The record is a 166-nucleotide RNA from Microcaecilia unicolor, which matches "MIR898 microRNA precursor family" in Rfam.
[Rfam]
RNA sequence: ACCAACGAUGGCCAGCGUUUCGCUGUGCUGUAGAUCAGACUGUAGCUGCUUCAGGGUACUAAUGGGGAAUAGAUCUGGAGCAGCUUUCACAGAUCUAUUCCCUGUUAGUACCCUGAAGCAGCUACAGUCUGAUCUACAGCACAGCGAAACGCUGGCCAUCGUUGGU
Numbered sequence: 001a002c003c004a005a006c007g008a009u010g011g012c013c014a015g016c017g018u019u020u021c022g023c024u025g026u027g028c029u030g031u032a033g034a035u036c037a038g039a040c041u042g043u044a045g046c047u048g049c050u051u052c053a054g055g056g057u058a059c060u061a062a063u064g065g066g067g068a069a070u071a072g073a074u075c076u077g078g079a080g081c082a083g084c085u086u087u088c089a090c091a092g093a094u095c096u097a098u099u100c101c102c103u104g105u106u107a108g109u110a111c112c113c114u115g116a117a118g119c120a121g122c123u124a125c126a127g128u129c130u131g132a133u134c135u136a137c138a139g140c141a142c143a144g145c146g147a148a149a150c151g152c153u154g155g156c157c158a159u160c161g162u163u164g165g166u
Base pairs, nucleotide, nucleotide: 003164004163005162006161007160008159009158011156012155013154014153015152016151017150018149019148020147021146022145023144024143025142026141027140028139029138030137031136032135033134034133035132036131037130038129039128040127041126042125046121047120048119049118050117052115053114054113055112056111057110058109059108060107061106062105063104064103065102066101067100068099069098070097071096072095073094074093075092076091077090

NCBI's taxonomy places the organism under Eukaryota, Deuterostomia, Chordata, Vertebrata, Microcaecilia. A search with the family's covariance model found it, with a score of 76 bits.